[Rfam]
RNA sequence: CUCCCUCAGCCUUACUCCAGGGGCCUUUGCUGUAAGGUGCCCUGGCAUUGCCUGGGGGCACACGAAAAAGCGCACAUCCCUCCCCAGGAAGGCUCCGUUCUCCUGUGGGGCCUACUGAUUGCGCUGACAGC
Numbered sequence: 001c002u003c004c005c006u007c008a009g010c011c012u013u014a015c016u017c018c019a020g021g022g023g024c025c026u027u028u029g030c031u032g033u034a035a036g037g038u039g040c041c042c043u044g045g046c047a048u049u050g051c052c053u054g055g056g057g058g059c060a061c062a063c064g065a066a067a068a069a070g071c072g073c074a075c076a077u078c079c080c081u082c083c084c085c086a087g088g089a090a091g092g093c094u095c096c097g098u099u100c101u102c103c104u105g106u107g108g109g110g111c112c113u114a115c116u117g118a119u120u121g122c123g124c125u126g127a128c129a130g131c
Stems, first nucleotide, its partner, number of pairs: 003058007011050001017045006023038005069125003073121002082110005089104001091102002
Small nucleolar RNA SNORA49: a 131-nucleotide RNA from Myotis lucifugus. The snoRNA ACA49 has no identified RNA target. NB genomic sequence 1-nt different from published. Pairs were carried over by alignment from the consensus structure, which was predicted with RNAalifold.